This 357-nucleotide sequence from Granulicatella adiacens belongs to the Rfam family "Bacterial RNase P class B". About the family: Ribonuclease P (RNase P) is a ubiquitous endoribonuclease, found in archaea, bacteria and eukarya as well as chloroplasts and mitochondria. The family's RNA type in Rfam is ribozyme. NCBI's taxonomy places the organism under Bacteria, Bacillati, Bacilli, Carnobacteriaceae, Granulicatella adiacens.
[Rfam]
RNA sequence: AACUUUGAGUAAUCGCGGCAUUCAAUGCUGAGGAAAGUCCAUGCUCGCACAAGCUGAGAUGCUUGUAGUGUUCGUGCUUAGCGAAACAAUAAGCUAAGGCAACUUCAUGUUGACGGCAGAAAAACGAGCUACGGCAAUGCUAUGCUCUAGUAUUCUUGAAAGUGCCACAGUGACGAAGCAAUUUUGGAAACGAAAUUGGUGGAACGCGGUAAACCCCUCGAGCGAGCAACCCAAACUUAUGGUAGGGGCACUCUUACUAGGAAAUGAACGAAAAAAGAGACACAUCAUGUGUAGACAGAUGAUUACUGAAAUUUAAUAGAUCCUGCUAUUAAAUGGAACAGAACAUGGCUUAUAGAA
Numbered sequence: 001a002a003c004u005u006u007g008a009g010u011a012a013u014c015g016c017g018g019c020a021u022u023c024a025a026u027g028c029u030g031a032g033g034a035a036a037g038u039c040c041a042u043g044c045u046c047g048c049a050c051a052a053g054c055u056g057a058g059a060u061g062c063u064u065g066u067a068g069u070g071u072u073c074g075u076g077c078u079u080a081g082c083g084a085a086a087c088a089a090u091a092a093g094c095u096a097a098g099g100c101a102a103c104u105u106c107a108u109g110u111u112g113a114c115g116g117c118a119g120a121a122a123a124a125c126g127a128g129c130u131a132c133g134g135c136a137a138u139g140c141u142a143u144g145c146u147c148u149a150g151u152a153u154u155c156u157u158g159a160a161a162g163u164g165c166c167a168c169a170g171u172g173a174c175g176a177a178g179c180a181a182u183u184u185u186g187g188a189a190a191c192g193a194a195a196u197u198g199g200u201g202g203a204a205c206g207c208g209g210u211a212a213a214c215c216c217c218u219c220g221a222g223c224g225a226g227c228a229a230c231c232c233a234a235a236c237u238u239a240u241g242g243u244a245g246g247g248g249c250a251c252u253c254u255u256a257c258u259a260g261g262a263a264a265u266g267a268a269c270g271a272a273a274a275a276a277g278a279g280a281c282a283c284a285u286c287a288u289g290u291g292u293a294g295a296c297a298g299a300u301g302a303u304u305a306c307u308g309a310a311a312u313u314u315a316a317u318a319g320a321u322c323c324u325g326c327u328a329u330u331a332a333a334u335g336g337a338a339c340a341g342a343a344c345a346u347g348g349c350u351u352a353u354a355g356a357a
Base pairs, nucleotide, nucleotide: 004357005356006355007353008307009306010305011304012303013302014301016030017029018028019027020026021025035351036350037349039348040347041346042345043344044226045225046224047223048222049066050065051064052063053062054061072221073220074219076217077098078097079096080095081094082093099114100112101111102110103109115216116215118156119155120154121153126147127146128145129144133141134140135139162214163213164210165209166208179198180197181196182195183194184193185192186191230247231246232245251279252278253277254276255275280292281291282290283289284288311334312333313332314331315330316329317328318327319326